RNA sequence: GUUCGGGUAUGAUGACUAAACAAAUUGUCAGAGGCUACAGCAUUGCUGAAGUUAUUUUGCACGUCAGUCUGAUCUGAAU
Numbered sequence: 001g002u003u004c005g006g007g008u009a010u011g012a013u014g015a016c017u018a019a020a021c022a023a024a025u026u027g028u029c030a031g032a033g034g035c036u037a038c039a040g041c042a043u044u045g046c047u048g049a050a051g052u053u054a055u056u057u058u059g060c061a062c063g064u065c066a067g068u069c070u071g072a073u074c075u076g077a078a079u
Stems, first nucleotide, its partner, number of pairs: 001079007
The record is a 79-nucleotide sequence from Salix brachista, which matches "Small nucleolar RNA Z122" in Rfam. The family's RNA type in Rfam is C/D-box small nucleolar RNA. The source organism's lineage runs through Eukaryota, Embryophyta, Mesangiospermae, Saliceae and Salix. The base pairs follow the family's consensus structure, which was predicted with PFOLD.